[Rfam]
RNA sequence: AGAACAUCCGCGGCAGCGCCCGCGAUGUUUG
Numbered sequence: 001a002g003a004a005c006a007u008c009c010g011c012g013g014c015a016g017c018g019c020c021c022g023c024g025a026u027g028u029u030u031g
Base pairs, nucleotide, nucleotide: 002030003029004028005027006026007025009024010023011022012021013020014018
This 31-nucleotide RNA belongs to the Rfam family "Iron response element II". Gene Ontology term of the family: response to iron ion. For this family Rfam cites "A cytosolic protein binds to structural elements within the iron regulatory region of the transferrin receptor mRNA" (Koeller et al., Proc Natl Acad Sci U S A, 1989). About the family: IRE, TFRC, SLC40A1, SDHB, SLC11A2, CDC42BPA, ACO2, ALAS2_H.SAPIENS, CDC14A, EPAS1, ALAS2, qoxD, Hao1, NDUFS1, transferrin, Aconitate.